Shown here is a 115-nucleotide RNA from Facklamia hominis, a member of the family "FMN riboswitch aptamer (RFN element)". The base pairs follow the family's consensus structure, which is taken from published work. It scores 118 bits against the family's covariance model.

[Rfam]
RNA sequence: AAAGGUCUUCGGGGCAGAGUGAAAUUCUCGACCGGCGGUAAAGUCCGCGAGCUAAUUUAGCAGAACUGGUGUAAUUCCAGUACCGACAGUAUAGUCUGGAUGGUAGAAGAUUGGA
Numbered sequence: 001a002a003a004g005g006u007c008u009u010c011g012g013g014g015c016a017g018a019g020u021g022a023a024a025u026u027c028u029c030g031a032c033c034g035g036c037g038g039u040a041a042a043g044u045c046c047g048c049g050a051g052c053u054a055a056u057u058u059a060g061c062a063g064a065a066c067u068g069g070u071g072u073a074a075u076u077c078c079a080g081u082a083c084c085g086a087c088a089g090u091a092u093a094g095u096c097u098g099g100a101u102g103g104u105a106g107a108a109g110a111u112u113g114g115a
Stems, first nucleotide, its partner, number of pairs: 004112007017029003031095002033085002035048004043083002051061003065081005087098003